[Rfam]
RNA sequence: ACUGAAUACGAAGCGCCUGGACUAUUCCAUCGGACGGAGAAGUACGGAAUAGUUGACGAGGAAGAGGUUUAUCGAAACAUUCGGCGGAUACCUCUCGGGAUGGCUUGCACCCGUUAGUCCGUGCUCAAAACAGGAAGGCAACUUUUUGUACAGAAGUCGGACGGUAGGCACAUAG
Dot-bracket structure: ...................(((((((((.................)))))))))........(((((....((((.....))))......)))))((((..........)))).....((((.(......(((((((....)))))))..........).))))...........
glmS glucosamine-6-phosphate activated ribozyme aptamer: a 175-nucleotide RNA from Sporolactobacillus laevolacticus. Rfam describes the family as follows. This entry contains a glucosamine-6-phosphate activated ribozyme that is found in the mRNA for GlmS. GlmS is an enzyme that uses fructose-6-phosphate and glutamine to generate glucosamine-6-phosphate. It scores 97 bits against the family's covariance model. Gene Ontology terms of the family: catalytic activity and regulation of gene expression.